[Rfam]
RNA sequence: UUGGUAUUCCCGGAGUUCCCUCUCCAGGAAGAUACAAUAAAUUAAGAUUAAGUGGUAGGAAUCAACGAGCUAGAUUACU
Dot-bracket structure: ......((((.((((......)))).)))).................................(.(......).)....
Rfam assigns this 79-nucleotide RNA from Aegilops tauschii to the family "Plastid-rpl20 3UTR RNA". Lineage of the source: Eukaryota > Viridiplantae > Tracheophyta > Poaceae > Aegilops tauschii. The family's RNA type in Rfam is cis-regulatory element. Plastid rpl20 is a non-coding RNA (ncRNA) recognised in plastids. It was found in the three prime untranslated region (3UTR) of rpl20 gene, it presence in the 3UTR region sugest a role in transcript maduration. The match comes from Rfam's covariance-model search (63 bits).